Rfam assigns this 58-nucleotide RNA sequence from Corynebacterium heidelbergense to the family "L31-Corynebacteriaceae ribosomal protein leader". The family is grouped with related families in Rfam's "Ribosomal Protein L31 Leader clan". By type it is a cis-regulatory leader. The organism belongs to Corynebacterium, within Bacteria. For this family Rfam cites "Discovery of 20 novel ribosomal leader candidates in bacteria and archaea" (Eckert and Weinberg, BMC Microbiol, 2020). The base pairs follow the family's consensus structure, which is taken from published work.

[Rfam]
RNA sequence: ACGCAGGCACGACCCCACACUGUCGAUGGGGACCGACCUGCUGUAGCAACCUGAGGGA
Numbered sequence: 001a002c003g004c005a006g007g008c009a010c011g012a013c014c015c016c017a018c019a020c021u022g023u024c025g026a027u028g029g030g031g032a033c034c035g036a037c038c039u040g041c042u043g044u045a046g047c048a049a050c051c052u053g054a055g056g057g058a
Stems, first nucleotide, its partner, number of pairs: 001044003004040004013031005018025001